A member of the RNA family "Repression of heat shock gene expression (ROSE) element" from Hephaestia caeni, 101 nucleotides long. Lineage of the source: Bacteria > Pseudomonadati > Pseudomonadota > Alphaproteobacteria > Hephaestia. Gene Ontology terms of the family: regulation of translation and response to temperature stimulus. By type it is an RNA thermoregulator. About the family: This family represents a 5' UTR cis-regulatory element found in heat shock mRNAs and is known as the ROSE (repression of heat shock gene expression) element. The ROSE element is a negative regulator of heat shock gene expression. The secondary structure is thought to be regulated by temperature. This regulation blocks access to the ribosome binding site under normal conditions. During heat shock however, the structure changes freeing the ribosome binding site and allowing expression to occur.
Nucleotides: 101
Base pairs, nucleotide, nucleotide: 001024002023003022004021005020006019008018009017034058037056038055039054040053041052042051043050059099060098061097062096063095066092067091068090069089070088071087072086074085075084076083
Number, partner (000 for none) and nucleotide at each position: 001024c002023c003022g004021g005020a006019c007000g008018c009017u010000g011000g012000a013000a014000a015000c016000c017009g018008g019006g020005u021004c022003c023002g024001g025000u026000g027000g028000a029000c030000a031000u032000u033000g034058a035000g036000a037056g038055c039054g040053c041052c042051g043050g044000c045000u046000c047000u048000c049000u050043c051042c052041g053040g054039c055038g056037c057000g058034u059099c060098u061097c062096a063095u064000g065000c066092c067091c068090g069089a070088a071087u072086u073000g074085c075084u076083c077000a078000a079000u080000c081000a082000g083076g084075a085074g086072g087071a088070u089069u090068u091067g092066g093000a094000a095063a096062u097061g098060a099059g100000a101000a